A member of the RNA family "tRNA" from Nakaseomyces glabratus, 73 nucleotides long. Taxonomically the source falls in Nakaseomyces (Eukaryota, Opisthokonta, saccharomyceta, Saccharomycotina). Rfam classes the family as a transfer RNA. The family's consensus secondary structure is taken from published work. The sequence is in the family's curated seed alignment. Rfam describes the family as follows. Transfer RNA (tRNA) molecules are approximately 80 nucleotides in length.

RNA sequence: GGAGGUGUUGUUUAAAGGUUAAGCUAUUAGAUUGCAGAUCUACUUAUUAAGAGUUCGAUUCUCUUCAUCUCUU
Number, nucleotide and partner (000 for none) at each position: 001g072002g071003a070004g069005g068006u067007g066008u000009u000010g025011u000012u023013u022014a000015a000016a000017g000018g000019u000020u000021a000022a013023g012024c000025u010026a000027u000028u042029a041030g040031a039032u000033u000034g000035c000036a000037g000038a000039u031040c030041u029042a028043c000044u000045u000046a000047u000048u000049a065050a064051g063052a062053g061054u000055u000056c000057g000058a000059u000060u000061c053062u052063c051064u050065u049066c007067a006068u005069c004070u003071c002072u001073u000